Rfam assigns this 144-nucleotide RNA sequence from Sorghum bicolor to the family "small nucleolar RNA snoR134".
Pairs were carried over by alignment from the consensus structure, which was predicted with RNAalifold.
A reference for the family is Chen and Wu (2009), "Mining small RNA sequencing data: a new approach to identify small nucleolar RNAs in Arabidopsis", Nucleic Acids Res.
Taxonomically the source falls in Sorghum (Eukaryota, Embryophyta, Mesangiospermae, commelinids).
Rfam 15.1 lists 792 matches to the family in 228 species.
[Rfam]
RNA sequence: CUGCAUGGUGCUAACCCCGGGCUUGUCGGAUUUACUACUUGAAGAAGGAAGCCCCAAUGCCUGUGCUAGAUCCACCAUGCCAUUCAGUGUUGCAGGCCCUGAUGAAUCUUGUGAUUGGUCUGUGUCAAAGCAAUGGAUACAUAU
Numbered sequence: 001c002u003g004c005a006u007g008g009u010g011c012u013a014a015c016c017c018c019g020g021g022c023u024u025g026u027c028g029g030a031u032u033u034a035c036u037a038c039u040u041g042a043a044g045a046a047g048g049a050a051g052c053c054c055c056a057a058u059g060c061c062u063g064u065g066c067u068a069g070a071u072c073c074a075c076c077a078u079g080c081c082a083u084u085c086a087g088u089g090u091u092g093c094a095g096g097c098c099c100u101g102a103u104g105a106a107u108c109u110u111g112u113g114a115u116u117g118g119u120c121u122g123u124g125u126c127a128a129a130g131c132a133a134u135g136g137a138u139a140c141a142u143a144u
Stems, first nucleotide, its partner, number of pairs: 003066006010060002019054005024048001026045002080136005088127002091124006
Dot-bracket structure: ..((((((.((.......((((((.((................))..).)))))....)))))))).............(((((...((.((((((......................)))))).))....)))))........